Rfam assigns this 103-nucleotide RNA sequence from Desulfonispora thiosulfatigenes to the family "SAM riboswitch aptamer (S box leader)".

RNA sequence: UAACCAUCAAGAGAGGUGGAGGGACUGGCCCUGUGAAACCCGGCAACAACUGAUUUAAUCAGAAAUGUGCCAAUUCCAGCAGAAAAACUCUGAGAGAUGGUAG
Numbered sequence: 001u002a003a004c005c006a007u008c009a010a011g012a013g014a015g016g017u018g019g020a021g022g023g024a025c026u027g028g029c030c031c032u033g034u035g036a037a038a039c040c041c042g043g044c045a046a047c048a049a050c051u052g053a054u055u056u057a058a059u060c061a062g063a064a065a066u067g068u069g070c071c072a073a074u075u076c077c078a079g080c081a082g083a084a085a086a087a088c089u090c091u092g093a094g095a096g097a098u099g100g101u102a103g
Base pairs, nucleotide, nucleotide: 001103003101004100005099006098007097008096013041015040016039017038021031022030023029025079026078027077028076042071043070044069045068047067048066050062051061052060075095080092081091082090083089

Background: Lineage of the source: Bacteria > Bacillati > Bacillota > Desulfonispora > Desulfonispora thiosulfatigenes.